[Rfam]
RNA sequence: UUCCUGCUUCACCUCCCUGAGCAGGAGCCUGCAAAGGUAUUGACCCCGGCCCGUGCCGGGGUUUUUUCU
Numbered sequence: 001u002u003c004c005u006g007c008u009u010c011a012c013c014u015c016c017c018u019g020a021g022c023a024g025g026a027g028c029c030u031g032c033a034a035a036g037g038u039a040u041u042g043a044c045c046c047c048g049g050c051c052c053g054u055g056c057c058g059g060g061g062u063u064u065u066u067u068c069u
Base pairs, nucleotide, nucleotide: 003025004024005023006022007021008020027038028037029036030035044061045060046059047058048057049056050055
RNA: Burkholderia RNA 7 (anti-hemB)